[Rfam]
RNA sequence: UGCGAUUCUCGUUAGGCGAGGCUCCAGUUCAAACACAGGCCACUGCCCGGAAACGUCGAAAGACGCCAAUGGGUAGAACAGGUAUUGCCGGAUUAAGGCUUUACUUAACGUGGCUGAGUCAGCGGACUCUACGUUGUUCUGUGCCAAAGCUCAACCAGGGGGAAUGCAC
Numbered sequence: 001u002g003c004g005a006u007u008c009u010c011g012u013u014a015g016g017c018g019a020g021g022c023u024c025c026a027g028u029u030c031a032a033a034c035a036c037a038g039g040c041c042a043c044u045g046c047c048c049g050g051a052a053a054c055g056u057c058g059a060a061a062g063a064c065g066c067c068a069a070u071g072g073g074u075a076g077a078a079c080a081g082g083u084a085u086u087g088c089c090g091g092a093u094u095a096a097g098g099c100u101u102u103a104c105u106u107a108a109c110g111u112g113g114c115u116g117a118g119u120c121a122g123c124g125g126a127c128u129c130u131a132c133g134u135u136g137u138u139c140u141g142u143g144c145c146a147a148a149g150c151u152c153a154a155c156c157a158g159g160g161g162g163a164a165u166g167c168a169c
Stems, first nucleotide, its partner, number of pairs: 005165006011155002013096001015151003020145003025141003030136003039114005045074005054065004081105004087099003116129003

A member of the RNA family "M-box riboswitch aptamer (ykoK leader)" from Aneurinibacillus soli, 169 nucleotides long.
Gene Ontology terms of the family: response to magnesium ion and regulation of gene expression.
The source organism's lineage runs through Bacteria, Bacillati, Bacilli, Paenibacillaceae and Aneurinibacillus.
M-box riboswitch, also know as ykoK leader is described as a metaloregulatory RNA that sense divalent metals and function as a genetic control element of genes related to divalent metal transport in bacteria.